[Rfam]
Annotation: Shown here is a 73-nucleotide sequence from Janibacter indicus, a member of the family "tRNA".

RNA sequence: GGGCCUCUAGCUCAAUUGGCAGAGCUGCGGACUUUUAAUCCGUAGGUUGUGGGUUCGAGUCCCACGGGGCCCA
Numbered sequence: 001g002g003g004c005c006u007c008u009a010g011c012u013c014a015a016u017u018g019g020c021a022g023a024g025c026u027g028c029g030g031a032c033u034u035u036u037a038a039u040c041c042g043u044a045g046g047u048u049g050u051g052g053g054u055u056c057g058a059g060u061c062c063c064a065c066g067g068g069g070c071c072c073a
Stems, first nucleotide, its partner, number of pairs: 001072007010025004027043005049065005
The match comes from Rfam's covariance-model search (71 bits). Pairs were carried over by alignment from the consensus structure, which is taken from published work. By type it is a transfer RNA.